RNA sequence: AGAUUUCUUCGGGGCAGGGUGUAAUUCCCGACCGACGGUAACAACCAAGGGUUGAAGUCCGUGACCCGCGAGUAGCGGUGGACCUAGUGAGAGUCUAGGACCGACAGUAUAGUCUGGAUGGGAGAAGAAACGU
Numbered sequence: 001a002g003a004u005u006u007c008u009u010c011g012g013g014g015c016a017g018g019g020u021g022u023a024a025u026u027c028c029c030g031a032c033c034g035a036c037g038g039u040a041a042c043a044a045c046c047a048a049g050g051g052u053u054g055a056a057g058u059c060c061g062u063g064a065c066c067c068g069c070g071a072g073u074a075g076c077g078g079u080g081g082a083c084c085u086a087g088u089g090a091g092a093g094u095c096u097a098g099g100a101c102c103g104a105c106a107g108u109a110u111a112g113u114c115u116g117g118a119u120g121g122g123a124g125a126a127g128a129a130a131c132g133u
Base pairs, nucleotide, nucleotide: 004130005129006128007127008126009125010124017029018028019027031113032112033103034102035062036061037060038059057101058100066078083099084098085097086096087095105116106115107114

FMN riboswitch aptamer (RFN element): a 133-nucleotide sequence from Pediococcus pentosaceus. The organism belongs to Pediococcus pentosaceus, within Bacteria.